[Rfam]
RNA sequence: UCAAAACCAGGUGAAAAUUGACUAUUUAGUUAUGACAGACCUAUACAUGACUAAUAAGAAUCAUUCAUUGCUAUAACUUUUUGAAAUUUUAAUUGAAGUUUUU
Number, nucleotide and partner (000 for none) at each position: 001u000002c000003a000004a101005a100006a099007c098008c095009a094010g000011g000012u091013g000014a089015a088016a000017a000018u085019u084020g000021a000022c000023u000024a080025u000026u000027u076028a000029g074030u073031u000032a000033u000034g000035a000036c000037a000038g000039a000040c000041c000042u000043a000044u000045a000046c000047a000048u000049g000050a000051c000052u000053a000054a000055u000056a000057a000058g000059a000060a000061u000062c000063a000064u000065u000066c000067a000068u000069u000070g000071c000072u000073a030074u029075a000076a027077c000078u000079u000080u024081u000082u000083g000084a019085a018086a000087u000088u015089u014090u000091a012092a000093u000094u009095g008096a000097a000098g007099u006100u005101u004102u000103u000
Record summary
Shown here is a 103-nucleotide RNA sequence from Populus deltoides, a member of the family "MIR480 microRNA precursor family". Pairs were carried over by alignment from the consensus structure, which was predicted with WAR. The match comes from Rfam's covariance-model search (41 bits). For this family Rfam cites "Novel and mechanical stress-responsive MicroRNAs in Populus trichocarpa that are absent from Arabidopsis" (Lu et al., Plant Cell, 2005).